[Rfam]
RNA sequence: UUUGAUGUGAAUUGAUUUAUGUUUGAAUACACACACUUAAAAAUGGUUCUUAAGAGUUAUGUUGUUUGGAUAG
Dot-bracket structure: ..........((.(((((...(..((((.((............))))))..).))))))).............
Numbered sequence: 001u002u003u004g005a006u007g008u009g010a011a012u013u014g015a016u017u018u019a020u021g022u023u024u025g026a027a028u029a030c031a032c033a034c035a036c037u038u039a040a041a042a043a044u045g046g047u048u049c050u051u052a053a054g055a056g057u058u059a060u061g062u063u064g065u066u067u068g069g070a071u072a073g
Stems, first nucleotide, its partner, number of pairs: 011060002014058005022052001025049004030045002
The family of this 73-nucleotide RNA from Medicago truncatula is "MIR5272 microRNA precursor family".
Its family is annotated with miRNA-mediated post-transcriptional gene silencing and RISC complex in the Gene Ontology.
The organism belongs to Medicago, within Eukaryota.
The family's consensus secondary structure was predicted with RNAalifold.